[Rfam]
RNA sequence: CCAGGGGCUUUCGCCCCUGGCUAUUUUCGACCGGGCCUCCGGCCCU
Numbered sequence: 001c002c003a004g005g006g007g008c009u010u011u012c013g014c015c016c017c018u019g020g021c022u023a024u025u026u027u028c029g030a031c032c033g034g035g036c037c038u039c040c041g042g043c044c045c046u
Base pairs, nucleotide, nucleotide: 001020002019003018004017005016006015007014008013033045034044035043036042037041
RNA: Acido-Lenti-1 RNA